[Rfam]
Nucleotides: 067
Base pairs, nucleotide, nucleotide: 001065002064003063004062005061006060007059008058009057010056
Number, partner (000 for none) and nucleotide at each position: 001065a002064g003063u004062a005061g006060a007059u008058u009057u010056u011000u012000g013000c014000c015000u016000u017000u018000u019000a020000c021000u022000a023000g024000a025000a026000u027000u028000a029000a030000u031000u032000u033000a034000a035000c036000c037000a038000a039000u040000a041000u042000a043000a044000a045000a046000g047000g048000u049000u050000c051000a052000a053000g054000g055000a056010a057009a058008a059007a060006u061005c062004u063003a064002u065001u066000c067000a

Saccharomyces telomerase: a 67-nucleotide part of an RNA from Saccharomyces pastorianus. Pairs were carried over by alignment from the consensus structure, which is taken from published work. Lineage of the source: Eukaryota > Dikarya > Ascomycota > saccharomyceta > Saccharomyces. The literature on the family includes a 2004 paper in Curr Biol by Dandjinou et al., "A phylogenetically based secondary structure for the yeast telomerase RNA".